[Rfam]
RNA sequence: AAAACACAUAUUAAUUAUCCCUAGGGCCAUGGGAUAAACAAAAACCCUAUAAAAACAAGUUAGCACACCUUAGAAUGGUUCUAGCACAAUUACUAACCUAUGUCUUUGAUACCAGUUGAAGGAAAAAAACC
Numbered sequence: 001a002a003a004a005c006a007c008a009u010a011u012u013a014a015u016u017a018u019c020c021c022u023a024g025g026g027c028c029a030u031g032g033g034a035u036a037a038a039c040a041a042a043a044a045c046c047c048u049a050u051a052a053a054a055a056c057a058a059g060u061u062a063g064c065a066c067a068c069c070u071u072a073g074a075a076u077g078g079u080u081c082u083a084g085c086a087c088a089a090u091u092a093c094u095a096a097c098c099u100a101u102g103u104c105u106u107u108g109a110u111a112c113c114a115g116u117u118g119a120a121g122g123a124a125a126a127a128a129a130c131c
Base pairs, nucleotide, nucleotide: 009121011119012118013117014116015115016114022108023107024106025105026104028102029101030100031099032098033097048086053080054079056077057076060073061072062071063070
This 131-nucleotide RNA from Vitis rotundifolia belongs to the Rfam family "MIR845_2 microRNA precursor family". For this family Rfam cites "The grapevine genome sequence suggests ancestral hexaploidization in major angiosperm phyla" (Jaillon et al., Nature, 2007).